[Rfam]
RNA sequence: AUAUAAGCAAAGAUUCUUUUUUUAAGUUCAUUGAAUAACUGAUGUAUCUGGUUCAUAAUAUAGACCAAAUACAUCAGUUAUUCAAUGAACUUGAAAAAUGAAUCUUUGCUUCAAU
Dot-bracket structure: .(..(((.(((((.((.((((((((.((((((((((((((((((....((((...........))))....)))))))))))))))))).)))))))).)).))))).)))..).
RNA: MIR2593 microRNA precursor family
Organism: Trifolium pratense